[Rfam]
RNA sequence: UACAGCAGAGAUAAAAACACGGUCUGGUUGGUAGUCCAGGCGUACCCUUUAGGGUAUCAGUAACCCUCCUCCUGGUCGUCCGUUCUUUUGCUGGACACGG
Numbered sequence: 001u002a003c004a005g006c007a008g009a010g011a012u013a014a015a016a017a018c019a020c021g022g023u024c025u026g027g028u029u030g031g032u033a034g035u036c037c038a039g040g041c042g043u044a045c046c047c048u049u050u051a052g053g054g055u056a057u058c059a060g061u062a063a064c065c066c067u068c069c070u071c072c073u074g075g076u077c078g079u080c081c082g083u084u085c086u087u088u089u090g091c092u093g094g095a096c097a098c099g100g
Base pairs, nucleotide, nucleotide: 004092005091006090007088008087009086010085011084022041023040024039025038026037027036042057043056044055045054046053047052068075069074
azaaromatic riboswitch aptamer (yjdF RNA): a 100-nucleotide RNA sequence from Faecalicatena orotica. A search with the family's covariance model found it, with a score of 76 bits.